RNA: c-di-AMP riboswitch aptamer (ydaO/yuaA leader)
RNA sequence: CCGCGCGAAGCGCCGCACGCGGAGCCGGGGACCCAUCCAGUCCUUCACAUCGGGGUGAAUCGGCCUGCCCGAGGGCGGCCGUAGGGCGGCUUCCACGCCCGAACCCGUCAGCUAACCCGGUAGGCGGCAUGGAAGUCGAGGA
Numbered sequence: 001c002c003g004c005g006c007g008a009a010g011c012g013c014c015g016c017a018c019g020c021g022g023a024g025c026c027g028g029g030g031a032c033c034c035a036u037c038c039a040g041u042c043c044u045u046c047a048c049a050u051c052g053g054g055g056u057g058a059a060u061c062g063g064c065c066u067g068c069c070c071g072a073g074g075g076c077g078g079c080c081g082u083a084g085g086g087c088g089g090c091u092u093c094c095a096c097g098c099c100c101g102a103a104c105c106c107g108u109c110a111g112c113u114a115a116c117c118c119g120g121u122a123g124g125c126g127g128c129a130u131g132g133a134a135g136u137c138g139a140g141g142a
Base pairs, nucleotide, nucleotide: 001022002021003020004019005018024121025120026119027118028117029116034052053106054105055104061081062080063079064078084100085099086098087097